Shown here is a 79-nucleotide RNA from Alsobacter metallidurans, a member of the family "Makes More Granules Regulator RNA (mmgR)". Pairs were carried over by alignment from the consensus structure. The source organism's lineage runs through Bacteria, Pseudomonadati, Pseudomonadota, Alphaproteobacteria and Alsobacter. Rfam classes the family as a small RNA. Gene Ontology terms of the family: protein binding, response to nitrogen compound and DNA-templated transcription, termination.

RNA sequence: CGUCAUAGCCCUCCUUGGGCGUUUCCUCCCUAGACUUGGGGCCGCUGCGUUCGCGCGAGCGGCCCUCUUUCUUUUCAGC
Numbered sequence: 001c002g003u004c005a006u007a008g009c010c011c012u013c014c015u016u017g018g019g020c021g022u023u024u025c026c027u028c029c030c031u032a033g034a035c036u037u038g039g040g041g042c043c044g045c046u047g048c049g050u051u052c053g054c055g056c057g058a059g060c061g062g063c064c065c066u067c068u069u070u071c072u073u074u075u076c077a078g079c
Base pairs, nucleotide, nucleotide: 008020009019010018011017040064041063042062043061044060045059046057047056048055